[Rfam]
RNA sequence: CCAUAGAUGACAUGCCGAGCUGCACCACCUAAGCGCAUUAUCGCGUAGGGUUUUGCAGCCGAUGCGCAAAAAAAGUGCGCAAAAGAAAAGGCUGGCCGUUAUUGAUGCAGUCUCUUCUCAGGGUAAAGAUGGAAACGCCUUUGCCUCCCAACCUGGAAAGGCAUCUAUGCAAAGACAAC
Numbered sequence: 001c002c003a004u005a006g007a008u009g010a011c012a013u014g015c016c017g018a019g020c021u022g023c024a025c026c027a028c029c030u031a032a033g034c035g036c037a038u039u040a041u042c043g044c045g046u047a048g049g050g051u052u053u054u055g056c057a058g059c060c061g062a063u064g065c066g067c068a069a070a071a072a073a074a075g076u077g078c079g080c081a082a083a084a085g086a087a088a089a090g091g092c093u094g095g096c097c098g099u100u101a102u103u104g105a106u107g108c109a110g111u112c113u114c115u116u117c118u119c120a121g122g123g124u125a126a127a128g129a130u131g132g133a134a135a136c137g138c139c140u141u142u143g144c145c146u147c148c149c150a151a152c153c154u155g156g157a158a159a160g161g162c163a164u165c166u167a168u169g170c171a172a173a174g175a176c177a178a179c
Stems, first nucleotide, its partner, number of pairs: 004172001006170001012164005019059006027051003033046004061117002121146008130137002147156002

A member of the RNA family "Molybdenum/Tungsten riboswitch aptamer (Moco RNA motif)" from Simiduia agarivorans, 179 nucleotides long.
The literature on the family includes a 2008 paper in Mol Microbiol by Regulski et al., "in molybdenum cofactor and tungsten cofactor metabolism".
Rfam 15.1 lists 1,248 matches to the family in 836 species.
NCBI's taxonomy places the organism under Bacteria, Pseudomonadati, Pseudomonadota, Cellvibrionales, Simiduia agarivorans.
The match comes from Rfam's covariance-model search (73 bits).